The family of this 69-nucleotide RNA sequence from Callithrix jacchus is "mir-4510 microRNA precursor family". A search with the family's covariance model found it, with a score of 60 bits. Taxonomically the source falls in Callithrix (Eukaryota, Sarcopterygii, Theria, Eutheria).

[Rfam]
RNA sequence: GAGUAUGUGCAUGAGGGAGUAGGAUGUAUAGCUGUUAGGUAGACAACUAAAAUCUCUCACGACAGACAG
Numbered sequence: 001g002a003g004u005a006u007g008u009g010c011a012u013g014a015g016g017g018a019g020u021a022g023g024a025u026g027u028a029u030a031g032c033u034g035u036u037a038g039g040u041a042g043a044c045a046a047c048u049a050a051a052a053u054c055u056c057u058c059a060c061g062a063c064a065g066a067c068a069g
Base pairs, nucleotide, nucleotide: 003067004066006064007063008062010061012059013058014057015056022055023054024053025052029049030048031047033045034044035043036042